[Rfam]
RNA sequence: GAGCUUAGCGGCUAGGGAUCCGGCACUCCAUUAGAGGAUGCGCAGAACCGAGAGCUGCUGCUGGUGCGGGAGAAAUCCGCACCAUUGCACGGCGGGAUAAAAACCCGGGAGAU
Numbered sequence: 001g002a003g004c005u006u007a008g009c010g011g012c013u014a015g016g017g018a019u020c021c022g023g024c025a026c027u028c029c030a031u032u033a034g035a036g037g038a039u040g041c042g043c044a045g046a047a048c049c050g051a052g053a054g055c056u057g058c059u060g061c062u063g064g065u066g067c068g069g070g071a072g073a074a075a076u077c078c079g080c081a082c083c084a085u086u087g088c089a090c091g092g093c094g095g096g097a098u099a100a101a102a103a104c105c106c107g108g109g110a111g112a113u
Stems, first nucleotide, its partner, number of pairs: 007059006015049002021045001022043001023041003027037002060086001062084008088108001090111001094106003
Guanidine-I riboswitch aptamer: a 113-nucleotide sequence from Rhizobium sp. BK376.
It scores 68 bits against the family's covariance model.
Taxonomically the source falls in Rhizobium (Bacteria, Pseudomonadati, Pseudomonadota, Hyphomicrobiales).